[Rfam]
RNA sequence: GUUCUGCCGUGAGGAGUUAAGAACAAAUUCACAUUUCAGAGAUUUUUAUAAUCGUUGAGAAUGACAAUUCUUAUCACCAAGCAGAAA
Numbered sequence: 001g002u003u004c005u006g007c008c009g010u011g012a013g014g015a016g017u018u019a020a021g022a023a024c025a026a027a028u029u030c031a032c033a034u035u036u037c038a039g040a041g042a043u044u045u046u047u048a049u050a051a052u053c054g055u056u057g058a059g060a061a062u063g064a065c066a067a068u069u070c071u072u073a074u075c076a077c078c079a080a081g082c083a084g085a086a087a
Stems, first nucleotide, its partner, number of pairs: 002086006041053004
A member of the RNA family "Small nucleolar RNA R64/Z200 family" from Cicer arietinum, 87 nucleotides long. The organism belongs to Cicer, within Eukaryota. It is annotated as a C/D-box small nucleolar RNA. The base pairs follow the family's consensus structure, which was predicted with PFOLD. The match comes from Rfam's covariance-model search (62 bits).